[Rfam]
RNA: Manganese Mn2+ riboswitch aptamer (yybP-ykoY)
Organism: Pseudaquabacterium pictum
RNA sequence: UGUCCUGUCAUUGGGGAGUAGCCGCCCGGCCACUGUGCGUGGUGUCGGGGCGGGCGUCAACACACUUGGCCGCGGGCUUGCCCGCAUCCCGCGGGAUCCUGGCCAUGGCGCCCGCAGCACCGCAGCC
Dot-bracket structure: .........................(((((.............))))).((((((((((.......(((((.............................)))))))))))))))............